Shown here is a 140-nucleotide RNA sequence from Amphiprion percula, a member of the family "U4 spliceosomal RNA".
The match comes from Rfam's covariance-model search (110 bits).
RNA sequence: AUCCUUUCGCAGAGGCAAUUUCAUAGUCUGUGAAGUCUUACUGAGACGUGAUUAUUGCUGGUUGAAAACUUCACCCAAUACCCCGCCUUGAUGACUUGAAACAUAGUCAGCUAUGGCAAUUUUGUAAGUCUCUGAGGAGA
Numbered sequence: 001a002u003c004c005u006u007u008c009g010c011a012g013a014g015g016c017a018a019u020u021u022c023a024u025a026g027u028c029u030g031u032g033a034a035g036u037c038u039u040a041c042u043g044a045g046a047c048g049u050g051a052u053u054a055u056u057g058c059u060g061g062u063u064g065a066a067a068a069c070u071u072c073a074c075c076c077a078a079u080a081c082c083c084c085g086c087c088u089u090g091a092u093g094a095c096u097u098g099a100a101a102c103a104u105a106g107u108c109a110g111c112u113a114u115g116g117c118a119a120u121u122u123u124g125u126a127a128g129u130c131u132c133u134g135a136g137g138a139g140a
Base pairs, nucleotide, nucleotide: 021051022050023049024048026047027046028045034042035041036040085117086116087115088113090111092109093108094107095106096105129140130139131138132137

Taxonomically the source falls in Amphiprion (Eukaryota, Osteoglossocephalai, Euteleosteomorpha, Acanthomorphata).